This 53-nucleotide RNA sequence from Alphaproteobacteria bacterium HT1-32 belongs to the Rfam family "serC leader". It is annotated as a cis-regulatory leader. On this family, see Corbino et al., Genome Biol 2005: "Evidence for a second class of S-adenosylmethionine riboswitches and other regulatory RNA motifs in alpha-proteobacteria". Gene Ontology term of the family: regulation of gene expression. Lineage of the source: Bacteria > Pseudomonadati > Pseudomonadota > Alphaproteobacteria.

RNA sequence: CAGCGGGCCACGCCUCCCCACCGGGGCGAGACUCAUCUGUAAUGGUGAGAGGA
Numbered sequence: 001c002a003g004c005g006g007g008c009c010a011c012g013c014c015u016c017c018c019c020a021c022c023g024g025g026g027c028g029a030g031a032c033u034c035a036u037c038u039g040u041a042a043u044g045g046u047g048a049g050a051g052g053a
Stems, first nucleotide, its partner, number of pairs: 011028006033048005